[Rfam]
RNA sequence: AUACUCACGUAAUCGCUGUAUAGUAAUUCUAUGCAGAGGAAAGUCCAUGCUCACACAAGCUGCGAUGCUUGUAGUGAUCGUGCUUGACGAAAACAUAAGUCAAGGUAGCCUGUAUGGCUAACGGCAGUGAAAAAUCCUAACUCUUUUGACAUGGAUGAGUACACUUGAAAGUGCCACAGUGACGCAGUCGGAUUGGAAACGAUCCGAGUGGAACGCGGUAAACCCCACGAGUGAGCAACCCAAAAUUUGGUAGGGGCACCCUUGAUUAGGGAAUUGAACUGAAAGAGGGACAGGCAACUAGCCUGUAGAUAGAUGAUUACGACCGCUGUACGAGGCUGACCACCGUGAAAAGUACAACGGAACAGAACAUGGCUUACCGAG
Numbered sequence: 001a002u003a004c005u006c007a008c009g010u011a012a013u014c015g016c017u018g019u020a021u022a023g024u025a026a027u028u029c030u031a032u033g034c035a036g037a038g039g040a041a042a043g044u045c046c047a048u049g050c051u052c053a054c055a056c057a058a059g060c061u062g063c064g065a066u067g068c069u070u071g072u073a074g075u076g077a078u079c080g081u082g083c084u085u086g087a088c089g090a091a092a093a094c095a096u097a098a099g100u101c102a103a104g105g106u107a108g109c110c111u112g113u114a115u116g117g118c119u120a121a122c123g124g125c126a127g128u129g130a131a132a133a134a135u136c137c138u139a140a141c142u143c144u145u146u147u148g149a150c151a152u153g154g155a156u157g158a159g160u161a162c163a164c165u166u167g168a169a170a171g172u173g174c175c176a177c178a179g180u181g182a183c184g185c186a187g188u189c190g191g192a193u194u195g196g197a198a199a200c201g202a203u204c205c206g207a208g209u210g211g212a213a214c215g216c217g218g219u220a221a222a223c224c225c226c227a228c229g230a231g232u233g234a235g236c237a238a239c240c241c242a243a244a245a246u247u248u249g250g251u252a253g254g255g256g257c258a259c260c261c262u263u264g265a266u267u268a269g270g271g272a273a274u275u276g277a278a279c280u281g282a283a284a285g286a287g288g289g290a291c292a293g294g295c296a297a298c299u300a301g302c303c304u305g306u307a308g309a310u311a312g313a314u315g316a317u318u319a320c321g322a323c324c325g326c327u328g329u330a331c332g333a334g335g336c337u338g339a340c341c342a343c344c345g346u347g348a349a350a351a352g353u354a355c356a357a358c359g360g361a362a363c364a365g366a367a368c369a370u371g372g373c374u375u376a377c378c379g380a381g
Base pairs, nucleotide, nucleotide: 004381005380006379008321009320010319011318012317013316014315016036017035018034019033020032021031041375042374043373045372046371047370048369049368050235051234052233053232054231055072056071057070058069059068060067078230079229080228081227082226083104084103085102086101087100088099105122106120107119108118109117110116123225124224126165127164128163129162134156135155136154137153142149143148171223172222173219174218175217188207189206190205191204192203193202194201195200239255240254241253259289260288261287262286263285290306291305292304293303294302295301323360324359325358327356328355329354330353331352

Shown here is a 381-nucleotide RNA sequence from Lentibacillus cibarius, a member of the family "Bacterial RNase P class B". From the family's description: Ribonuclease P (RNase P) is a ubiquitous endoribonuclease, found in archaea, bacteria and eukarya as well as chloroplasts and mitochondria. The family is grouped with related families in Rfam's "RNaseP clan". The family's consensus secondary structure is taken from published work. On this family, see Brown, Nucleic Acids Res 1999: "The Ribonuclease P Database". It is annotated as a ribozyme. The match comes from Rfam's covariance-model search (331 bits). The source organism's lineage runs through Bacteria, Bacillati, Bacillota, Caryophanales and Lentibacillus.